[Rfam]
The family of this 137-nucleotide sequence from Daucus carota is "Small nucleolar RNA snoR77".
The family's RNA type in Rfam is H/ACA-box small nucleolar RNA.
Taxonomically the source falls in Daucus carota (Eukaryota, Pentapetalae, Apiaceae, Daucinae).
The literature on the family includes a 2002 paper in Curr Biol by Marker et al., "Experimental RNomics: identification of 140 candidates for small non-messenger RNAs in the plant Arabidopsis thaliana".
Rfam 15.1 lists 649 matches to the family in 221 species.
RNA sequence: AGGCAGCCUCUUUUACUAAGAAAGAUAGAAAAGAAGGUGUUUAUCUGCUCGUAAAUUAUACCACACAGCUGUUGCUCUUCAGAUUUGCUGAGAUUUUUAUUAGUCUUUGAAGCUGGUCUAGUAAGCAUCAGUACAUU
Numbered sequence: 001a002g003g004c005a006g007c008c009u010c011u012u013u014u015a016c017u018a019a020g021a022a023a024g025a026u027a028g029a030a031a032a033g034a035a036g037g038u039g040u041u042u043a044u045c046u047g048c049u050c051g052u053a054a055a056u057u058a059u060a061c062c063a064c065a066c067a068g069c070u071g072u073u074g075c076u077c078u079u080c081a082g083a084u085u086u087g088c089u090g091a092g093a094u095u096u097u098u099a100u101u102a103g104u105c106u107u108u109g110a111a112g113c114u115g116g117u118c119u120a121g122u123a124a125g126c127a128u129c130a131g132u133a134c135a136u137u
Stems, first nucleotide, its partner, number of pairs: 002041004007037002009034006016028002069131003074126003081119005087113003092105003